[Rfam]
RNA sequence: ACAGUACAAACUGAGCAGGCGAUGGAUCCUUUUGGGGUCUGUGGGGCUGGGCCGCUUUGGCGGCAGCGGGUUUGCAUCUUUGAUCACACCUGCGGGACAGUG
Numbered sequence: 001a002c003a004g005u006a007c008a009a010a011c012u013g014a015g016c017a018g019g020c021g022a023u024g025g026a027u028c029c030u031u032u033u034g035g036g037g038u039c040u041g042u043g044g045g046g047c048u049g050g051g052c053c054g055c056u057u058u059g060g061c062g063g064c065a066g067c068g069g070g071u072u073u074g075c076a077u078c079u080u081u082g083a084u085c086a087c088a089c090c091u092g093c094g095g096g097a098c099a100g101u102g
Stems, first nucleotide, its partner, number of pairs: 010101004016096001018048003022042006051064005066093006
Dot-bracket structure: .........((((..(.(((.((((((.........))))))...)))..(((((....))))).((((((................))))))..).)))).
RNA: NiCo (Nickel/Cobalt) riboswitch aptamer